[Rfam]
Rfam assigns this 397-nucleotide RNA sequence from Flectobacillus sp. BAB-3569 to the family "Bacterial RNase P class A". The family's consensus secondary structure is taken from published work. The match comes from Rfam's covariance-model search (253 bits).
RNA sequence: GAAGUAAGUCGUCUUAUCGCCUCUGCUUUAUGUAGGGGAGGAAAGUCUGGACAACACAGAGCAUCAUGCUUCCUAACGGGAAGGCACGGUUUUGGUGACGAAAACGUGACAGCUAGUGCCACAGAAAAUUACCGCCUGUAAGGGUAAGGGUGAAAAGGUAGAGUAAGAGCCUACCGCCCGUUUGGUGACAAGCGGGGCAGAGGUAAACCUCAUGAGUUGAAAGACCAAAUAGGCUGGCGAGAAGAACUUUCGGGUUUGGAAAAAGGGCUGCUCGCCCGAUGUCAGUGGGUAGGUUGAUAGAGCGUAUCGGUGACGAUUCGUCGAGAUAAAUGGUAAGACAGCGCAAAACUGGACAUUUUGUGACUGACAGAAUCCGGCUUAUAGAUUUGCUUUAGGU
Numbered sequence: 001g002a003a004g005u006a007a008g009u010c011g012u013c014u015u016a017u018c019g020c021c022u023c024u025g026c027u028u029u030a031u032g033u034a035g036g037g038g039a040g041g042a043a044a045g046u047c048u049g050g051a052c053a054a055c056a057c058a059g060a061g062c063a064u065c066a067u068g069c070u071u072c073c074u075a076a077c078g079g080g081a082a083g084g085c086a087c088g089g090u091u092u093u094g095g096u097g098a099c100g101a102a103a104a105c106g107u108g109a110c111a112g113c114u115a116g117u118g119c120c121a122c123a124g125a126a127a128a129u130u131a132c133c134g135c136c137u138g139u140a141a142g143g144g145u146a147a148g149g150g151u152g153a154a155a156a157g158g159u160a161g162a163g164u165a166a167g168a169g170c171c172u173a174c175c176g177c178c179c180g181u182u183u184g185g186u187g188a189c190a191a192g193c194g195g196g197g198c199a200g201a202g203g204u205a206a207a208c209c210u211c212a213u214g215a216g217u218u219g220a221a222a223g224a225c226c227a228a229a230u231a232g233g234c235u236g237g238c239g240a241g242a243a244g245a246a247c248u249u250u251c252g253g254g255u256u257u258g259g260a261a262a263a264a265g266g267g268c269u270g271c272u273c274g275c276c277c278g279a280u281g282u283c284a285g286u287g288g289g290u291a292g293g294u295u296g297a298u299a300g301a302g303c304g305u306a307u308c309g310g311u312g313a314c315g316a317u318u319c320g321u322c323g324a325g326a327u328a329a330a331u332g333g334u335a336a337g338a339c340a341g342c343g344c345a346a347a348a349c350u351g352g353a354c355a356u357u358u359u360g361u362g363a364c365u366g367a368c369a370g371a372a373u374c375c376g377g378c379u380u381a382u383a384g385a386u387u388u389g390c391u392u393u394a395g396g397u
Base pairs, nucleotide, nucleotide: 001393002392003391004390005389006388007387008386009385010384011382012338013337014336015335016334017333018332020038021037022036023035024034025033026032043380044379045378047377048376049375050374051373052219053218054217055216059273060272061271062270064215065214066213067212068211069083070082071081072080073079084110085108086107087106088105111210112209116208117207118204119203120202132149133148134145135144136143137142157175158174159173160172161171176198177196178195179194180193181192182191183190184189223295224294225293226292233286234285235284236283237282238281265277266276267275268274302321303320304319306317307316308315309314